[Rfam]
Rfam assigns this 80-nucleotide RNA sequence from Gallionella capsiferriformans to the family "int-alpA RNA". The organism belongs to Gallionella capsiferriformans, within Bacteria. From the family's description: Acidobacteria (1 example), Planctomycetes (1 example), Proteobacteria. By type it is a small RNA. The sequence is in the family's curated seed alignment.
RNA sequence: GCCGCACCUAGUCCGUGCUUAAUUACCACGGGCGAAAGCACAGAAACCCUUGCUGUGUUGGUGCGGCUUCUAUUCAGGGC
Numbered sequence: 001g002c003c004g005c006a007c008c009u010a011g012u013c014c015g016u017g018c019u020u021a022a023u024u025a026c027c028a029c030g031g032g033c034g035a036a037a038g039c040a041c042a043g044a045a046a047c048c049c050u051u052g053c054u055g056u057g058u059u060g061g062u063g064c065g066g067c068u069u070c071u072a073u074u075c076a077g078g079g080c
Base pairs, nucleotide, nucleotide: 001067002066003065004064005063006062007061008060011033012032013031014030015029016028017027039057040056041055042054043053048079049078050077051076052075